[Rfam]
RNA sequence: UUCUUGGAGGAAGUCAGCAAAUGUUAUAUUGCGACAUUCCUUUGUAUAACAGAGUAUAAUAAAGUCGAGAUAUCGUUUCAGUCGCCCCGCGUACGCAUGGGUGAUUCGAUUGUUGCUCGACAACAC
Numbered sequence: 001u002u003c004u005u006g007g008a009g010g011a012a013g014u015c016a017g018c019a020a021a022u023g024u025u026a027u028a029u030u031g032c033g034a035c036a037u038u039c040c041u042u043u044g045u046a047u048a049a050c051a052g053a054g055u056a057u058a059a060u061a062a063a064g065u066c067g068a069g070a071u072a073u074c075g076u077u078u079c080a081g082u083c084g085c086c087c088c089g090c091g092u093a094c095g096c097a098u099g100g101g102u103g104a105u106u107c108g109a110u111u112g113u114u115g116c117u118c119g120a121c122a123a124c125a126c
Stems, first nucleotide, its partner, number of pairs: 006043006013035003017032003064121001066119004072110004081105007089096002
The family of this 126-nucleotide RNA sequence from Taxus chinensis is "Small nucleolar RNA snoR111". Rfam links the family to the GO terms nucleolus and RNA processing. The family's RNA type in Rfam is H/ACA-box small nucleolar RNA. A reference for the family is Marker et al. (2002), "Experimental RNomics: identification of 140 candidates for small non-messenger RNAs in the plant Arabidopsis thaliana", Curr Biol.